[Rfam]
Eukaryotic large subunit ribosomal RNA: a 377-nucleotide part of an RNA from Octopus sinensis.
RNA sequence: AGUGUCGUUGCCACAGUAAUUCUGCAAAUUACGUAAGGAACUGCAGAGUCAGACAUUUGGUUCAUGCACUUGACUGGAAAGUCAGUGGUGCGAAGCUAUCGUCUGAAGAUAAUAACUGAACGCCUCUAAGUUAAAAUCUUGACUGGCUGCAACGAUAUUGUUCGAAGCUCUUGUAUAGCAAAUUUAUGCUUUUAUGCUGCUACUGGCUUGGUGUCGUUGAUAACACUAAAAACUGUUGUUACACCGGUUAACUUGCAUUUUCACUGAGCUUUGUGCUAAAUUAUAUGCAAACGACAUAUACUGGCAUGGGAACUGUACAUACGAAAGCCACGUAUAAUGGCGAUCUACUGAGGUCCAUCCCUUUGCCUAAAAUUUGU
Numbered sequence: 001a002g003u004g005u006c007g008u009u010g011c012c013a014c015a016g017u018a019a020u021u022c023u024g025c026a027a028a029u030u031a032c033g034u035a036a037g038g039a040a041c042u043g044c045a046g047a048g049u050c051a052g053a054c055a056u057u058u059g060g061u062u063c064a065u066g067c068a069c070u071u072g073a074c075u076g077g078a079a080a081g082u083c084a085g086u087g088g089u090g091c092g093a094a095g096c097u098a099u100c101g102u103c104u105g106a107a108g109a110u111a112a113u114a115a116c117u118g119a120a121c122g123c124c125u126c127u128a129a130g131u132u133a134a135a136a137u138c139u140u141g142a143c144u145g146g147c148u149g150c151a152a153c154g155a156u157a158u159u160g161u162u163c164g165a166a167g168c169u170c171u172u173g174u175a176u177a178g179c180a181a182a183u184u185u186a187u188g189c190u191u192u193u194a195u196g197c198u199g200c201u202a203c204u205g206g207c208u209u210g211g212u213g214u215c216g217u218u219g220a221u222a223a224c225a226c227u228a229a230a231a232a233c234u235g236u237u238g239u240u241a242c243a244c245c246g247g248u249u250a251a252c253u254u255g256c257a258u259u260u261u262c263a264c265u266g267a268g269c270u271u272u273g274u275g276c277u278a279a280a281u282u283a284u285a286u287g288c289a290a291a292c293g294a295c296a297u298a299u300a301c302u303g304g305c306a307u308g309g310g311a312a313c314u315g316u317a318c319a320u321a322c323g324a325a326a327g328c329c330a331c332g333u334a335u336a337a338u339g340g341c342g343a344u345c346u347a348c349u350g351a352g353g354u355c356c357a358u359c360c361c362u363u364u365g366c367c368u369a370a371a372a373u374u375u376g377u
Base pairs, nucleotide, nucleotide: 004156005155006154007153008152009151010150011149014145015144016143017142019049020048021047022046023045024044025043026042050105051104052103053102054101058098059097060096065092066091067090068089069088070085071084072083073082074081075080106140107139108138113133114132115131116130117129163273164272165271166270167269168268278375279374280373281372282371283299284298285297286296287295303367304366305365306364308361309360310359312354313353320347321346324344327341328340329339330338